[Rfam]
RNA sequence: CAGUAGCCCCGAUUGCAGCGUAAAUCCUUUUGGGGAGAAACCUCAAAGGUUUUGAAAACCUUUGAGGUUUACCAAAAGAUUGCAGCGAAAAGCGGGACCGAAC
Numbered sequence: 001c002a003g004u005a006g007c008c009c010c011g012a013u014u015g016c017a018g019c020g021u022a023a024a025u026c027c028u029u030u031u032g033g034g035g036a037g038a039a040a041c042c043u044c045a046a047a048g049g050u051u052u053u054g055a056a057a058a059c060c061u062u063u064g065a066g067g068u069u070u071a072c073c074a075a076a077a078g079a080u081u082g083c084a085g086c087g088a089a090a091a092g093c094g095g096g097a098c099c100g101a102a103c
Stems, first nucleotide, its partner, number of pairs: 009095003013091002018086002023081004029076005036068001